Rfam assigns this 176-nucleotide RNA sequence from Ambrosiozyma monospora to the family "Small nucleolar RNA snR8". The family is grouped with related families in Rfam's "SNORA56 clan". It scores 55 bits against the family's covariance model. Pairs were carried over by alignment from the consensus structure, which was predicted with WAR.
RNA sequence: AAGAAACCGAUACGAUGCGGUCUAUUCACCACACCAUCCUAUUCAAUGGAUGACUGGAGGGGGAAAAGAUCGCUAGAUUGAUUUCAAUAUAUUCCUCAUAGAUUUGUGCUCCUUUGGUGUCCUCUUUUGGUCACCAUCGACAAUGAGCAUUUGUCACUAUGUUUUUUGAUACACCU
Dot-bracket structure: ................((.((.......((.((.(((((........)))))..))..))........)).))..........((((...(.........(((..((((((.........((......))..............))))))..)))......)...)))).......